[Rfam]
RNA sequence: AUCGGUAAGCGGUAUUAGGGUCCAGUUGCAUAAAGCCCCGAUUUAUCGGGGUUUUUUGUUAUUUGGCAACAAACAACUGGGCUAUUAGGCCCUUUUUUU
Number, nucleotide and partner (000 for none) at each position: 001a000002u000003c000004g000005g000006u000007a000008a000009g000010c000011g000012g000013u000014a000015u000016u000017a000018g000019g000020g000021u000022c000023c000024a000025g000026u000027u000028g000029c000030a000031u000032a055033a054034a053035g052036c051037c050038c049039c048040g047041a000042u000043u000044u000045a000046u000047c040048g039049g038050g037051g036052u035053u034054u033055u032056u000057u000058g000059u000060u000061a000062u000063u000064u000065g000066g000067c000068a000069a000070c000071a000072a000073a000074c000075a000076a000077c000078u000079g092080g091081g090082c089083u000084a000085u000086u000087a000088g000089g082090c081091c080092c079093u000094u000095u000096u000097u000098u000099u000
About this RNA: This 99-nucleotide sequence from Pectobacterium carotovorum belongs to the Rfam family "Gammaprotebacteria rimP leader". The family's RNA type in Rfam is cis-regulatory leader. It is one of the family's seed sequences.